[Rfam]
A member of the RNA family "Nuclear RNase P" from Daphnia pulex, 318 nucleotides long. Rfam's curators write: Ribonuclease P (RNase P) is a ubiquitous endoribonuclease, found in archaea, bacteria and eukarya as well as chloroplasts and mitochondria. Its best characterised activity is the generation of mature 5'-ends of tRNAs by cleaving the 5'-leader elements of precursor-tRNAs. Pairs were carried over by alignment from the consensus structure, which is taken from published work. NCBI's taxonomy places the organism under Eukaryota, Bilateria, Panarthropoda, Cladocera, Daphnia. Gene Ontology terms of the family: tRNA processing, ribonuclease P activity and ribonuclease P complex. The match comes from Rfam's covariance-model search (128 bits).
RNA sequence: GCUUACGGCAAUCCCGCGCUAGGGGGUUACUCAAAGGGUACAUUGUUGCUCAAUCCAACCCUCGGGAAGGUCUGAGACGAGGCUUUUCUAAUUGUCGGAGAGAUGCUCUAGCCGGGCAGCCUUUUCGUAAGGGCGCAGGGGAAUAGAAAGGGUAUCGGUUGGAGCGUCGUUAGUCCCAAGAUGUCCUUUAGGAUUAGGCGGAGACCUCCAUCCGAUUGGAACUGCCUCUGUAGCUUGCUUUUUGAGUAUAAUCUGCGGGUUGUGAUUUGCCUUUAUAGGCUGAUUGCAAAACUCAAUUCAGACUAAUCUGCUGAAAGC
Numbered sequence: 001g002c003u004u005a006c007g008g009c010a011a012u013c014c015c016g017c018g019c020u021a022g023g024g025g026g027u028u029a030c031u032c033a034a035a036g037g038g039u040a041c042a043u044u045g046u047u048g049c050u051c052a053a054u055c056c057a058a059c060c061c062u063c064g065g066g067a068a069g070g071u072c073u074g075a076g077a078c079g080a081g082g083c084u085u086u087u088c089u090a091a092u093u094g095u096c097g098g099a100g101a102g103a104u105g106c107u108c109u110a111g112c113c114g115g116g117c118a119g120c121c122u123u124u125u126c127g128u129a130a131g132g133g134c135g136c137a138g139g140g141g142a143a144u145a146g147a148a149a150g151g152g153u154a155u156c157g158g159u160u161g162g163a164g165c166g167u168c169g170u171u172a173g174u175c176c177c178a179a180g181a182u183g184u185c186c187u188u189u190a191g192g193a194u195u196a197g198g199c200g201g202a203g204a205c206c207u208c209c210a211u212c213c214g215a216u217u218g219g220a221a222c223u224g225c226c227u228c229u230g231u232a233g234c235u236u237g238c239u240u241u242u243u244g245a246g247u248a249u250a251a252u253c254u255g256c257g258g259g260u261u262g263u264g265a266u267u268u269g270c271c272u273u274u275a276u277a278g279g280c281u282g283a284u285u286g287c288a289a290a291a292c293u294c295a296a297u298u299c300a301g302a303c304u305a306a307u308c309u310g311c312u313g314a315a316a317g318c
Stems, first nucleotide, its partner, number of pairs: 001318004008311003013259006022063005036051005072301005081235004104118005119134006135231007155215003260289007